[Rfam]
RNA: c-di-GMP-I riboswitch aptamer
RNA sequence: UGCAGAAAAAGGCAAACCUAUUGAAAGAUAGGGACGCAAAGUCACAGGUCUAAAGUAUGAACGUUCUUUUUGUAGAUUGUUCUGCAUAAAAUCAUUUUAGCAGCAGCUCUCUGAAAGGCAUUUUCUAUACUAAGAUGGCUGGAUUGCCUGG
Numbered sequence: 001u002g003c004a005g006a007a008a009a010a011g012g013c014a015a016a017c018c019u020a021u022u023g024a025a026a027g028a029u030a031g032g033g034a035c036g037c038a039a040a041g042u043c044a045c046a047g048g049u050c051u052a053a054a055g056u057a058u059g060a061a062c063g064u065u066c067u068u069u070u071u072g073u074a075g076a077u078u079g080u081u082c083u084g085c086a087u088a089a090a091a092u093c094a095u096u097u098u099a100g101c102a103g104c105a106g107c108u109c110u111c112u113g114a115a116a117g118g119c120a121u122u123u124u125c126u127a128u129a130c131u132a133a134g135a136u137g138g139c140u141g142g143a144u145u146g147c148c149u150g151g
Base pairs, nucleotide, nucleotide: 012037013036017032018031019030020029021028022027040145041144042143043142045141046140047139048136049135050134055130056129057128058127